RNA sequence: AGUUGUCAACUCAAUAGCCCUCAUAUAAUCACGAGAAUAUGGCUCGUAAGUCUCUACCCGAUUACCGUAAAUAAUCGGACUAUGAGGGAAAGUAGCUAUCUG
Numbered sequence: 001a002g003u004u005g006u007c008a009a010c011u012c013a014a015u016a017g018c019c020c021u022c023a024u025a026u027a028a029u030c031a032c033g034a035g036a037a038u039a040u041g042g043c044u045c046g047u048a049a050g051u052c053u054c055u056a057c058c059c060g061a062u063u064a065c066c067g068u069a070a071a072u073a074a075u076c077g078g079a080c081u082a083u084g085a086g087g088g089a090a091a092g093u094a095g096c097u098a099u100c101u102g
Stems, first nucleotide, its partner, number of pairs: 018088008029049001031047005058078007
Background:
Rfam assigns this 102-nucleotide sequence from Bacillus smithii to the family "Purine riboswitch aptamer". A search with the family's covariance model found it, with a score of 91 bits. Rfam links the family to the GO term purine nucleobase biosynthetic process.